[Rfam]
RNA sequence: UGCAGCCGGGUAAGUCCUAUACGGCCAGCUCCUUGUCAACUCCCCCAGGUCUUGACCGAAGCAAGGGUAGCAGGUUGUAGCGGCGCGAUAUAGAUCGCUUGCCCACCU
Numbered sequence: 001u002g003c004a005g006c007c008g009g010g011u012a013a014g015u016c017c018u019a020u021a022c023g024g025c026c027a028g029c030u031c032c033u034u035g036u037c038a039a040c041u042c043c044c045c046c047a048g049g050u051c052u053u054g055a056c057c058g059a060a061g062c063a064a065g066g067g068u069a070g071c072a073g074g075u076u077g078u079a080g081c082g083g084c085g086c087g088a089u090a091u092a093g094a095u096c097g098c099u100u101g102c103c104c105a106c107c108u
Stems, first nucleotide, its partner, number of pairs: 008104008017093005022087002024084002
This 108-nucleotide RNA sequence from Prevotella sp. CAG:279 belongs to the Rfam family "Bacteroidales small SRP". Clan: SRP clan. Taxonomically the source falls in Prevotella (Bacteria, Pseudomonadati, Bacteroidales, Prevotellaceae). For this family Rfam cites "A high-resolution transcriptome map identifies small RNA regulation of metabolism in the gut microbe Bacteroides thetaiotaomicron" (Ryan et al., Nat Commun, 2020).